Shown here is a 131-nucleotide RNA sequence from Paspalum vaginatum, a member of the family "MIR162_2 microRNA precursor family". Clan: MIR167 microRNA precursor clan. Rfam links the family to the GO terms RISC complex and miRNA-mediated post-transcriptional gene silencing. The match comes from Rfam's covariance-model search (125 bits). Rfam 15.1 lists 43 matches to the family in 26 species. The base pairs follow the family's consensus structure, which was predicted with RNAalifold. NCBI's taxonomy places the organism under Eukaryota, Streptophyta, Streptophytina, Mesangiospermae, Paspalum.
[Rfam]
RNA sequence: GUCUGGGCGCAGUGGUUUAUCGAUCCUUUCCUUGCCUUGUGCUGAUCUGGGGGAGUGCUGGUCCAAGUGUUUCUUGCUGCAGCAGCUUGCGAACAACGCGGGAAUCGGUCGAUAAACCUCUGCAUCCAGCU
Numbered sequence: 001g002u003c004u005g006g007g008c009g010c011a012g013u014g015g016u017u018u019a020u021c022g023a024u025c026c027u028u029u030c031c032u033u034g035c036c037u038u039g040u041g042c043u044g045a046u047c048u049g050g051g052g053g054a055g056u057g058c059u060g061g062u063c064c065a066a067g068u069g070u071u072u073c074u075u076g077c078u079g080c081a082g083c084a085g086c087u088u089g090c091g092a093a094c095a096a097c098g099c100g101g102g103a104a105u106c107g108g109u110c111g112a113u114a115a116a117c118c119u120c121u122g123c124a125u126c127c128a129g130c131u
Base pairs, nucleotide, nucleotide: 003129004128005127006126007125009123010122011121012120014118015117016116017115018114019113020112021111022110023109024108025107028104029103030102031101032100034099035098037096038095039094